This 96-nucleotide sequence from Treponema denticola belongs to the Rfam family "TD-2 RNA". The family's consensus secondary structure is taken from published work. Its Rfam clan is "TD (Treponema denticola) motifs". On this family, see Weinberg et al., Nucleic Acids Res 2007: "Identification of 22 candidate structured RNAs in bacteria using the CMfinder comparative genomics pipeline".

RNA sequence: AGAUUUAUAUAUAGUUCUUUUUUUAUUUACAAAUUAUGAAUUACACGGGUAUGUCGAAGUUGAACAUUGGACACUGAUCUCCGAUUUUCAACGGUA
Numbered sequence: 001a002g003a004u005u006u007a008u009a010u011a012u013a014g015u016u017c018u019u020u021u022u023u024u025a026u027u028u029a030c031a032a033a034u035u036a037u038g039a040a041u042u043a044c045a046c047g048g049g050u051a052u053g054u055c056g057a058a059g060u061u062g063a064a065c066a067u068u069g070g071a072c073a074c075u076g077a078u079c080u081c082c083g084a085u086u087u088u089c090a091a092c093g094g095u096a
Base pairs, nucleotide, nucleotide: 001018002017003016005014006013037056038055039054040052041051043050044049059092060091061090062089063088064087066085067084068083069082070081071080
Dot-bracket structure: (((.((......)).)))..................(((((.((....)))).)))..((((((.((((((........)))))).))))))....